[Rfam]
RNA sequence: GAACCCUUUGUCCAGGUACUUAGUGACUCUCAAGUGUUCAUUUAACUUUGAGGGUUAUUUUGUGCCUUUACAAAAGCUUC
Numbered sequence: 001g002a003a004c005c006c007u008u009u010g011u012c013c014a015g016g017u018a019c020u021u022a023g024u025g026a027c028u029c030u031c032a033a034g035u036g037u038u039c040a041u042u043u044a045a046c047u048u049u050g051a052g053g054g055u056u057a058u059u060u061u062g063u064g065c066c067u068u069u070a071c072a073a074a075a076g077c078u079u080c
Base pairs, nucleotide, nucleotide: 001080002079003078005076007074008073009072010071011070014067015066016065017064018063019062022059023058024057025056026055027054028053029052030051031050032049033047034046035045